[Rfam]
RNA: mir-9229 microRNA precursor family
RNA sequence: GAGACACCCUUAUGGGGUAAGACUUGCUUCAGUGGGGCUUUGGUGCUCAAUGGGUCGGCCCCCUGAGUGUGUCCCU
Number, nucleotide and partner (000 for none) at each position: 001g075002a000003g073004a072005c071006a070007c069008c000009c067010u066011u065012a064013u000014g062015g061016g060017g059018u058019a000020a000021g056022a055023c054024u000025u000026g000027c000028u000029u053030c052031a051032g000033u049034g048035g047036g046037g044038c043039u000040u000041u000042g000043g038044u037045g000046c036047u035048c034049a033050a000051u031052g030053g029054g023055u022056c021057g000058g018059c017060c016061c015062c014063c000064u012065g011066a010067g009068u000069g007070u006071g005072u004073c003074c000075c001076u000